Purine riboswitch aptamer: a 102-nucleotide RNA from Bacillus sp. 1NLA3E.

RNA sequence: AAAAUAGUUUAGCAUCUCCCUCGUAUAAUAAUGGGAAUACGGCCCAUGAGUUUCUACCCAAUUACCGUAAAUUAUUGGACUAUGAGGGAAAGUGGUAACCGU
Numbered sequence: 001a002a003a004a005u006a007g008u009u010u011a012g013c014a015u016c017u018c019c020c021u022c023g024u025a026u027a028a029u030a031a032u033g034g035g036a037a038u039a040c041g042g043c044c045c046a047u048g049a050g051u052u053u054c055u056a057c058c059c060a061a062u063u064a065c066c067g068u069a070a071a072u073u074a075u076u077g078g079a080c081u082a083u084g085a086g087g088g089a090a091a092g093u094g095g096u097a098a099c100c101g102u
Stems, first nucleotide, its partner, number of pairs: 018088008029049001031047005058078005064072001
Dot-bracket structure: .................((((((((...(.(((((.......))))).)........(((((.(.......).)))))..))))))))..............
About this RNA:
It scores 87 bits against the family's covariance model. The base pairs follow the family's consensus structure, which is taken from published work.